[Rfam]
RNA sequence: GUGCGGAUUCUGCCGAAUCCCGGAAGCGUUUUCCGGGAGCGGGGGACCCACUCCCUUGGGGCGCAUCGCUUGAAAAAGCGUAGGACACCUUUCGGUCCGAGCCCGUCAGCUAACCUCGCAGGCGUCGAAGGGGAAGACC
Numbered sequence: 001g002u003g004c005g006g007a008u009u010c011u012g013c014c015g016a017a018u019c020c021c022g023g024a025a026g027c028g029u030u031u032u033c034c035g036g037g038a039g040c041g042g043g044g045g046a047c048c049c050a051c052u053c054c055c056u057u058g059g060g061g062c063g064c065a066u067c068g069c070u071u072g073a074a075a076a077a078g079c080g081u082a083g084g085a086c087a088c089c090u091u092u093c094g095g096u097c098c099g100a101g102c103c104c105g106u107c108a109g110c111u112a113a114c115c116u117c118g119c120a121g122g123c124g125u126c127g128a129a130g131g132g133g134a135a136g137a138c139c
Stems, first nucleotide, its partner, number of pairs: 011124004018038007039119006049058002059104003067080004083098004
Dot-bracket structure: ..........((((...(((((((.......)))))))((((((....((......))(((.....((((......))))..((((........))))...))).........)))))).))))...............
RNA: c-di-AMP riboswitch aptamer (ydaO/yuaA leader)